[Rfam]
RNA sequence: ACGUGUCGCGAGUGCCAUCGACGGUGCUCGCGGCAGCAGACAAGAAGACGGUGCCCCGGGAUUUUCUGGGCACUUCAGGGUGUU
Numbered sequence: 001a002c003g004u005g006u007c008g009c010g011a012g013u014g015c016c017a018u019c020g021a022c023g024g025u026g027c028u029c030g031c032g033g034c035a036g037c038a039g040a041c042a043a044g045a046a047g048a049c050g051g052u053g054c055c056c057c058g059g060g061a062u063u064u065u066c067u068g069g070g071c072a073c074u075u076c077a078g079g080g081u082g083u084u
Base pairs, nucleotide, nucleotide: 004035005034006033007032008031009030010029011028012027013026014025015024016023051073052072053071054070055069056068058066
Shown here is an 84-nucleotide sequence from Streptomyces sp. QHH-9511, a member of the family "nrdJ RNA".
Pairs were carried over by alignment from the consensus structure, which is taken from published work.
The organism belongs to Streptomyces, within Bacteria.